[Rfam]
RNA sequence: UUAAAAAUAAAAGCGCCAGCACUAAUCUAAAGAGGAAUUCCAUAUGGGAAAGUCAGACGAUGAAAAUGUCCGGCUAAGGCGUAGGGCCUAAAGAACGUAAGUCGAUUGGCUUUGUGGUGAAACUCAUUACAACGCAACUCAUCCUAUGUUUGCUAUCCCUGUUUAGUUGCCUUCCUUAGAUUAGUAGACGAGGUGGAGGUUUAUCGAACGUUCGGCGGAUGCCUCCCAGCUGUGCUACACAGCUGAAAUCUCUUUCUUAAAUCAUCAGAGGUGACUCGGUGGACAAAGGAAAGGGAAUGUGCACAU
Dot-bracket structure: ....................(((((((.(...................................................................................................................................................).))))))).........(((((....((((....))))......)))))((((((.......))))))...(((((((.......((((.(((....)))))))........)))))))..........
The record is a 306-nucleotide sequence from Lederbergia lenta, which matches "glmS glucosamine-6-phosphate activated ribozyme aptamer" in Rfam.
By type it is a riboswitch.